[Rfam]
RNA sequence: GGCGGGUCGCAAGUGCCACGACAGUCGAUCAUCGUAUGCUGUCGUGAGCGGUCUUCGCCCCGUC
Numbered sequence: 001g002g003c004g005g006g007u008c009g010c011a012a013g014u015g016c017c018a019c020g021a022c023a024g025u026c027g028a029u030c031a032u033c034g035u036a037u038g039c040u041g042u043c044g045u046g047a048g049c050g051g052u053c054u055u056c057g058c059c060c061c062g063u064c
Stems, first nucleotide, its partner, number of pairs: 001064006017046009026034002
Dot-bracket structure: ((((((..........(((((((((((.....))...)))))))))............))))))
Notes:
This 64-nucleotide RNA sequence from Pseudomonas jinjuensis belongs to the Rfam family "gabT RNA". By type it is a cis-regulatory element. The organism belongs to Pseudomonas, within Bacteria.